[Rfam]
RNA: Actinobacteria sRNA Ms_IGR-5
RNA sequence: ACACAGGGAAGGAGGUGGUCCGCGAAUUGUUAGCUUUCAGGACAUGUGAGGUGGUUGCGCGCUAGCAGCGCCGCGCGAGGAAUCAGCGGGACGCGCUGGCGAAUUCCCCGCAGCCACCCGGCCCCCGAGCCCCUGACCUGUCCAGUCAGGAAUUACGGCUCGGGGGCUGUUCUGU
Numbered sequence: 001a002c003a004c005a006g007g008g009a010a011g012g013a014g015g016u017g018g019u020c021c022g023c024g025a026a027u028u029g030u031u032a033g034c035u036u037u038c039a040g041g042a043c044a045u046g047u048g049a050g051g052u053g054g055u056u057g058c059g060c061g062c063u064a065g066c067a068g069c070g071c072c073g074c075g076c077g078a079g080g081a082a083u084c085a086g087c088g089g090g091a092c093g094c095g096c097u098g099g100c101g102a103a104u105u106c107c108c109c110g111c112a113g114c115c116a117c118c119c120g121g122c123c124c125c126c127g128a129g130c131c132c133c134u135g136a137c138c139u140g141u142c143c144a145g146u147c148a149g150g151a152a153u154u155a156c157g158g159c160u161c162g163g164g165g166g167c168u169g170u171u172c173u174g175u
Stems, first nucleotide, its partner, number of pairs: 015058005060101007068094003074088002119169013132150006